[Rfam]
Shown here is a 178-nucleotide RNA sequence from Streptomyces sp. TverLS-915, a member of the family "c-di-AMP riboswitch aptamer (ydaO/yuaA leader)". NCBI's taxonomy places the organism under Bacteria, Bacillati, Actinomycetota, Kitasatosporales, Streptomyces. Rfam describes the family as follows. This family represents a conserved RNA structure found upstream of the ydaO and yuaA genes in Bacillus subtilis and related genes in other bacteria.
RNA sequence: CGGACUCUCACGCUCACUCACACCCGUACCGGCAGGAGCGGGGGACCCACACGCUUCACGCCGUUCCCGGUCCUCCCGGGACGGCUCGGGGUGAAGUCACCGCGCGCACCGCGCCGGUGGCCGGGCAGCUCCAGCCCGAACCCGACAGCUCACCCCGCAGGCGACGGAGAAGGAAUCC
Numbered sequence: 001c002g003g004a005c006u007c008u009c010a011c012g013c014u015c016a017c018u019c020a021c022a023c024c025c026g027u028a029c030c031g032g033c034a035g036g037a038g039c040g041g042g043g044g045a046c047c048c049a050c051a052c053g054c055u056u057c058a059c060g061c062c063g064u065u066c067c068c069g070g071u072c073c074u075c076c077c078g079g080g081a082c083g084g085c086u087c088g089g090g091g092u093g094a095a096g097u098c099a100c101c102g103c104g105c106g107c108a109c110c111g112c113g114c115c116g117g118u119g120g121c122c123g124g125g126c127a128g129c130u131c132c133a134g135c136c137c138g139a140a141c142c143c144g145a146c147a148g149c150u151c152a153c154c155c156c157g158c159a160g161g162c163g164a165c166g167g168a169g170a171a172g173g174a175a176u177c178c
Stems, first nucleotide, its partner, number of pairs: 011163004018037002038158006048088001089143003097120006123137004
Dot-bracket structure: ..........((((...((................))((((((....(.......................................)(((.....((((((............))))))..((((.......))))...))).........)))))).))))...............